Annotation:
The family of this 584-nucleotide part of an RNA from Streptococcus himalayensis is "Bacterial small subunit ribosomal RNA". The match comes from Rfam's covariance-model search (1620 bits).

[Rfam]
RNA sequence: UGACGGGGGCCCGCACAAGCGGUGGAGCAUGUGGUUUAAUUCGAAGCAACGCGAAGAACCUUACCAGGUCUUGACAUCCCUCUGACCGCUCUAGAGAUAGAGUUUUCCUUCGGGACAGAGGUGACAGGUGGUGCAUGGUUGUCGUCAGCUCGUGUCGUGAGAUGUUGGGUUAAGUCCCGCAACGAGCGCAACCCUUAUUGUUAGUUGCCAUCAUUUAGUUGGGCACUCUAGCGAGACUGCCGGUAAUAAACCGGAGGAAGGUGGGGAUGACGUCAAAUCAUCAUGCCCCUUAUGACCUGGGCUACACACGUGCUACAAUGGCUGGUACAACGAGUCGCAAGUCGGUGACGGCAAGCUAAUCUCUUAAAGCCAGUCUCAGUUCGGAUUGUAGGCUGCAACUCGCCUACAUGAAGUCGGAAUCGCUAGUAAUCGCGGAUCAGCACGCCGCGGUGAAUACGUUCCCGGGCCUUGUACACACCGCCCGUCACACCACGAGAGUUUGUAACACCCGAAGUCGGUGAGGUAACCGUAAGGAGCCAGCCGCCUAAGGUGGGAUAGAUGAUUGGGGUGAAGUCGUAACAAGG
Numbered sequence: 001u002g003a004c005g006g007g008g009g010c011c012c013g014c015a016c017a018a019g020c021g022g023u024g025g026a027g028c029a030u031g032u033g034g035u036u037u038a039a040u041u042c043g044a045a046g047c048a049a050c051g052c053g054a055a056g057a058a059c060c061u062u063a064c065c066a067g068g069u070c071u072u073g074a075c076a077u078c079c080c081u082c083u084g085a086c087c088g089c090u091c092u093a094g095a096g097a098u099a100g101a102g103u104u105u106u107c108c109u110u111c112g113g114g115a116c117a118g119a120g121g122u123g124a125c126a127g128g129u130g131g132u133g134c135a136u137g138g139u140u141g142u143c144g145u146c147a148g149c150u151c152g153u154g155u156c157g158u159g160a161g162a163u164g165u166u167g168g169g170u171u172a173a174g175u176c177c178c179g180c181a182a183c184g185a186g187c188g189c190a191a192c193c194c195u196u197a198u199u200g201u202u203a204g205u206u207g208c209c210a211u212c213a214u215u216u217a218g219u220u221g222g223g224c225a226c227u228c229u230a231g232c233g234a235g236a237c238u239g240c241c242g243g244u245a246a247u248a249a250a251c252c253g254g255a256g257g258a259a260g261g262u263g264g265g266g267a268u269g270a271c272g273u274c275a276a277a278u279c280a281u282c283a284u285g286c287c288c289c290u291u292a293u294g295a296c297c298u299g300g301g302c303u304a305c306a307c308a309c310g311u312g313c314u315a316c317a318a319u320g321g322c323u324g325g326u327a328c329a330a331c332g333a334g335u336c337g338c339a340a341g342u343c344g345g346u347g348a349c350g351g352c353a354a355g356c357u358a359a360u361c362u363c364u365u366a367a368a369g370c371c372a373g374u375c376u377c378a379g380u381u382c383g384g385a386u387u388g389u390a391g392g393c394u395g396c397a398a399c400u401c402g403c404c405u406a407c408a409u410g411a412a413g414u415c416g417g418a419a420u421c422g423c424u425a426g427u428a429a430u431c432g433c434g435g436a437u438c439a440g441c442a443c444g445c446c447g448c449g450g451u452g453a454a455u456a457c458g459u460u461c462c463c464g465g466g467c468c469u470u471g472u473a474c475a476c477a478c479c480g481c482c483c484g485u486c487a488c489a490c491c492a493c494g495a496g497a498g499u500u501u502g503u504a505a506c507a508c509c510c511g512a513a514g515u516c517g518g519u520g521a522g523g524u525a526a527c528c529g530u531a532a533g534g535a536g537c538c539a540g541c542c543g544c545c546u547a548a549g550g551u552g553g554g555a556u557a558g559a560u561g562a563u564u565g566g567g568g569u570g571a572a573g574u575c576g577u578a579a580c581a582a583g584g
Stems, first nucleotide, its partner, number of pairs: 001475002003472003007469007015459002019423005024316001026314008034305002040055004064300007077124002079121005088103006106115003127289002130287004136283002138278003141274001143272002148187006154163003166179004193266004198234007208223002212221002237257002240254005320375007332363003337356002342351003382413001387408007429451007478583001480580001483576002488570004493565003498560006506552004514545001516543004522538003527534002